Description
A member of the RNA family "Small Cajal body-specific RNA 2" from Oryctolagus cuniculus, 427 nucleotides long. For this family Rfam cites "Guide RNAs with 5' caps and novel box C/D snoRNA-like domains for modification of snRNAs in metazoa" (Tycowski et al., Curr Biol, 2004). The organism belongs to Oryctolagus, within Eukaryota. By type it is a small Cajal body RNA.
RNA sequence: GCGGCACGGGAAGAGAGCGGCCUUGGGUGAGGCUUGUGUCGGCUGUGCAUGUGUGUCGCGUGGGAGGCGUGUGUGGGCCGAGGCACGAGUGGAUGCGUGGAUGUGUGUGUGUGUGCGCGCGUGUUGCGUGCAAGGCGAGUGAGUGCGCCCACCCCUGUGCCCCUCUCCCCUCCUUACACCUUGAUCUUAUUUGAUCGGGUCGUGACCCCAGCCUCGCCGGGCCGUCCCGAAAUGAAAAGCUCUCCUCCUGCGAAGCCCCCUCUCUGGGGGCGCUGUGCAGCGAGGCCCUUGGGCGGCGGCAACGCCGCGGUCCCCGAGGUCCCGGAGCUGGUCCAACGGGGCCCGGCGCUCGGAAGUGAUGAAUUGAUCAGAUAGACGAGGCUGGGCUUGUCCCGGGCCGCUGAUUAUCGAGGCGAUUCUGAUCUGA
Numbered sequence: 001g002c003g004g005c006a007c008g009g010g011a012a013g014a015g016a017g018c019g020g021c022c023u024u025g026g027g028u029g030a031g032g033c034u035u036g037u038g039u040c041g042g043c044u045g046u047g048c049a050u051g052u053g054u055g056u057c058g059c060g061u062g063g064g065a066g067g068c069g070u071g072u073g074u075g076g077g078c079c080g081a082g083g084c085a086c087g088a089g090u091g092g093a094u095g096c097g098u099g100g101a102u103g104u105g106u107g108u109g110u111g112u113g114u115g116c117g118c119g120c121g122u123g124u125u126g127c128g129u130g131c132a133a134g135g136c137g138a139g140u141g142a143g144u145g146c147g148c149c150c151a152c153c154c155c156u157g158u159g160c161c162c163c164u165c166u167c168c169c170c171u172c173c174u175u176a177c178a179c180c181u182u183g184a185u186c187u188u189a190u191u192u193g194a195u196c197g198g199g200u201c202g203u204g205a206c207c208c209c210a211g212c213c214u215c216g217c218c219g220g221g222c223c224g225u226c227c228c229g230a231a232a233u234g235a236a237a238a239g240c241u242c243u244c245c246u247c248c249u250g251c252g253a254a255g256c257c258c259c260c261u262c263u264c265u266g267g268g269g270g271c272g273c274u275g276u277g278c279a280g281c282g283a284g285g286c287c288c289u290u291g292g293g294c295g296g297c298g299g300c301a302a303c304g305c306c307g308c309g310g311u312c313c314c315c316g317a318g319g320u321c322c323c324g325g326a327g328c329u330g331g332u333c334c335a336a337c338g339g340g341g342c343c344c345g346g347c348g349c350u351c352g353g354a355a356g357u358g359a360u361g362a363a364u365u366g367a368u369c370a371g372a373u374a375g376a377c378g379a380g381g382c383u384g385g386g387c388u389u390g391u392c393c394c395g396g397g398c399c400g401c402u403g404a405u406u407a408u409c410g411a412g413g414c415g416a417u418u419c420u421g422a423u424c425u426g427a
Stems, first nucleotide, its partner, number of pairs: 053160004057073006091108001093106004111148003116143001118141003122137002190238003195230004201224002204222001207221003211217002259319004267315004272311003277308002280305003285300003288296002327347005332341003351426004361419006380399004385394002
Dot-bracket structure: ....................................................((((((((((.....)))))).................(.((((......)))).)..(((..(.(((.((............)).))).)..)))........)))).............................(((..((((..((.(..(((.((...)).))))))..)))).....)))....................((((....((((.(((..((.(((..(((((.....)).)))..))).))))))))))))).......((((((((....))).)))))...((((......((((((.............((((.((......)).))))..............))))))...)))).